[Rfam]
RNA: Histone 3' UTR stem-loop
RNA sequence: CCAAAGGCCCUUUUUAGGGCCACCCAAUAUUUCCACUUUUGGGGUUU
Numbered sequence: 001c002c003a004a005a006g007g008c009c010c011u012u013u014u015u016a017g018g019g020c021c022a023c024c025c026a027a028u029a030u031u032u033c034c035a036c037u038u039u040u041g042g043g044g045u046u047u
Base pairs, nucleotide, nucleotide: 006021007020008019009018010017011016